[Rfam]
Plastid-rps12 3UTR RNA: a 104-nucleotide sequence.

RNA sequence: UUUCAAUUGGUGCAAACCAAAUCACCUUAAUUUGCAAUUUAAGAUGCCCAAUAUUUUCCCAUUGGGAAUAAAAUAGUUACCCAUUAAGCGGGAAAAAUCCUAUU
Numbered sequence: 001u002u003u004c005a006a007u008u009g010g011u012g013c014a015a016a017c018c019a020a021a022u023c024a025c026c027u028u029a030a031u032u033u034g035c036a037a038u039u040u041a042a043g044a045u046g047c048c049c050a051a052u053a054u055u056u057u058c059c060c061a062u063u064g065g066g067a068a069u070a071a072a073a074u075a076g077u078u079a080c081c082c083a084u085u086a087a088g089c090g091g092g093a094a095a096a097a098u099c100c101u102a103u104u
Base pairs, nucleotide, nucleotide: 007021008020010018057093058092059091060090061084062083064081065080067078

Background
On this family, see Richter et al., Plant Commun 2023: "Retrograde signaling in plants: A critical review focusing on the GUN pathway and beyond". Plastid rpl20 is a non-coding RNA (ncRNA) recognised in plastids. Rfam 15.1 lists 1,710 matches to the family in 1,426 species. By type it is a cis-regulatory element.